The family of this 72-nucleotide RNA from Candidatus Nitrospira inopinata is "Fluoride riboswitch aptamer (crcB RNA motif)".
The organism belongs to Nitrospira, within Bacteria.
Pairs were carried over by alignment from the consensus structure, which is taken from published work.

RNA sequence: CAGAGCAUUGGUGAUGGAGUUCACCAAGAACCGUCCCACCGUGAAAGCGGGACUGAUGACUCCUACCGAAGA
Numbered sequence: 001c002a003g004a005g006c007a008u009u010g011g012u013g014a015u016g017g018a019g020u021u022c023a024c025c026a027a028g029a030a031c032c033g034u035c036c037c038a039c040c041g042u043g044a045a046a047g048c049g050g051g052a053c054u055g056a057u058g059a060c061u062c063c064u065a066c067c068g069a070a071g072a
Base pairs, nucleotide, nucleotide: 010025011024012023013022016063017062018061019060020059021058033053034052035051036050